[Rfam]
Nucleotides: 097
Stems, first nucleotide, its partner, number of pairs: 003096003024077004
Number, partner (000 for none) and nucleotide at each position: 001000u002000g003096a004095c005094a006000u007000u008000a009000u010000a011000u012000g013000a014000u015000g016000a017000a018000a019000u020000a021000u022000u023000u024077c025076g026075g027074a028000u029000g030000u031000u032000a033000a034000a035000u036000c037000a038000u039000u040000a041000u042000a043000u044000c045000u046000c047000c048000g049000a050000g051000a052000g053000c054000g055000c056000a057000a058000a059000a060000c061000c062000g063000u064000g065000u066000g067000g068000a069000g070000a071000u072000u073000u074027u075026c076025c077024g078000u079000u080000g081000c082000c083000u084000u085000c086000c087000u088000u089000c090000u091000g092000a093000u094005u095004g096003u097000c

This 97-nucleotide sequence from Monilinia fructicola belongs to the Rfam family "Small nucleolar RNA Z13/snr52". Pairs were carried over by alignment from the consensus structure, which was predicted with PFOLD. It scores 93 bits against the family's covariance model. Lineage of the source: Eukaryota > Dikarya > Ascomycota > saccharomyceta > Monilinia.